[Rfam]
RNA sequence: AAUCAACUAAGCUACUCCCGUCGUGAGGCGGGGUCAGAAAGCCACGGUUCUUGCCUAGCAAUAGCAAGAAGGCCGGGUUGCCUCC
Numbered sequence: 001a002a003u004c005a006a007c008u009a010a011g012c013u014a015c016u017c018c019c020g021u022c023g024u025g026a027g028g029c030g031g032g033g034u035c036a037g038a039a040a041g042c043c044a045c046g047g048u049u050c051u052u053g054c055c056u057a058g059c060a061a062u063a064g065c066a067a068g069a070a071g072g073c074c075g076g077g078u079u080g081c082c083u084c085c
Base pairs, nucleotide, nucleotide: 012037013036017032018031019030020029021028022027040079041078042077043076045075046074047073048070049069050068055064056063057062
A member of the RNA family "c-di-GMP-I riboswitch aptamer" from Methylomonas lenta, 85 nucleotides long. GEMM was predicted in a large-scale screen for bacterial structured RNA regulatory elements. Rfam 15.1 lists 5,092 matches to the family in 1,772 species.